MIR5272 microRNA precursor family: a 74-nucleotide RNA from Medicago truncatula. NCBI's taxonomy places the organism under Eukaryota, Magnoliopsida, Mesangiospermae, eudicotyledons, Medicago. Gene Ontology terms of the family: RISC complex and miRNA-mediated post-transcriptional gene silencing. The base pairs follow the family's consensus structure, which was predicted with RNAalifold.
RNA sequence: UUUGAAGAUAAUUGAUUUAUGUUUGGAUACAUUAUCCUUAAAGUGAUUCUUAUCAAUUCAUGUUGUUUGGAUAG
Numbered sequence: 001u002u003u004g005a006a007g008a009u010a011a012u013u014g015a016u017u018u019a020u021g022u023u024u025g026g027a028u029a030c031a032u033u034a035u036c037c038u039u040a041a042a043g044u045g046a047u048u049c050u051u052a053u054c055a056a057u058u059c060a061u062g063u064u065g066u067u068u069g070g071a072u073a074g
Base pairs, nucleotide, nucleotide: 011061012060014058015057016056017055021053022052025049026048027047028046030045031044032043033042